[Rfam]
The record is a 162-nucleotide RNA sequence from Fictibacillus arsenicus, which matches "c-di-AMP riboswitch aptamer (ydaO/yuaA leader)" in Rfam. For this family Rfam cites "New RNA motifs suggest an expanded scope for riboswitches in bacterial genetic control" (Barrick et al., Proc Natl Acad Sci U S A, 2004). NCBI's taxonomy places the organism under Bacteria, Bacilli, Caryophanales, Fictibacillaceae, Fictibacillus.
RNA sequence: UAAUAUGAUUCGCUGAAUUCUUUUGUUCUAUUCUGAACUUAAAAGAAGCGGGGGAACCACAACUUUGGCACUAUGCCUGGGAUGAAUUUGUUAAAAGCAGAAGGGAUAACUCUCAAUUCCCUAAUCCGACAGCUAACCUCGUAAGCGUUUUUGGAGAGAGAG
Numbered sequence: 001u002a003a004u005a006u007g008a009u010u011c012g013c014u015g016a017a018u019u020c021u022u023u024u025g026u027u028c029u030a031u032u033c034u035g036a037a038c039u040u041a042a043a044a045g046a047a048g049c050g051g052g053g054g055a056a057c058c059a060c061a062a063c064u065u066u067g068g069c070a071c072u073a074u075g076c077c078u079g080g081g082a083u084g085a086a087u088u089u090g091u092u093a094a095a096a097g098c099a100g101a102a103g104g105g106a107u108a109a110c111u112c113u114c115a116a117u118u119c120c121c122u123a124a125u126c127c128g129a130c131a132g133c134u135a136a137c138c139u140c141g142u143a144a145g146c147g148u149u150u151u152u153g154g155a156g157a158g159a160g161a162g
Base pairs, nucleotide, nucleotide: 011147012146013145014144018047019046020045021044022043023042024041025040048142049141050140051139052138053137058079059078080127081126082125088100089099090098091097103121104120105119106118